[Rfam]
RNA sequence: GGCGCGACGCGACUGGCGGCACGGGAUGGUCAACCAUCGGGGAGCCUGUCACGGGAGUCGACCGCCUGGGCUCCCGUC
Number, nucleotide and partner (000 for none) at each position: 001g050002g049003c048004g000005c000006g000007a047008c000009g045010c044011g000012a000013c041014u040015g066016g065017c064018g063019g062020c000021a000022c000023g000024g000025g000026a037027u036028g035029g034030u000031c000032a000033a000034c029035c028036a027037u026038c000039g000040g014041g013042g000043a000044g010045c009046c000047u007048g003049u002050c001051a000052c000053g000054g000055g073056a072057g071058u070059c069060g000061a000062c019063c018064g017065c016066c015067u000068g000069g059070g058071c057072u056073c055074c000075c000076g000077u000078c000
The record is a 78-nucleotide RNA from Virgisporangium aurantiacum, which matches "ZMP/ZTP riboswitch aptamer (pfl RNA motif)" in Rfam. It scores 45 bits against the family's covariance model. NCBI's taxonomy places the organism under Bacteria, Bacillati, Actinomycetota, Micromonosporales, Virgisporangium.